[Rfam]
RNA sequence: UGCUAAUAAGAUGUUUCUUACUAAAAAUGUCUGAUCGUCUGAACUCCAUAGUGAUUUCAGUGCAUUACUGAGAUAAGCU
Numbered sequence: 001u002g003c004u005a006a007u008a009a010g011a012u013g014u015u016u017c018u019u020a021c022u023a024a025a026a027a028u029g030u031c032u033g034a035u036c037g038u039c040u041g042a043a044c045u046c047c048a049u050a051g052u053g054a055u056u057u058c059a060g061u062g063c064a065u066u067a068c069u070g071a072g073a074u075a076a077g078c079u
Stems, first nucleotide, its partner, number of pairs: 002078003006074002
RNA: Small nucleolar RNA SNORD72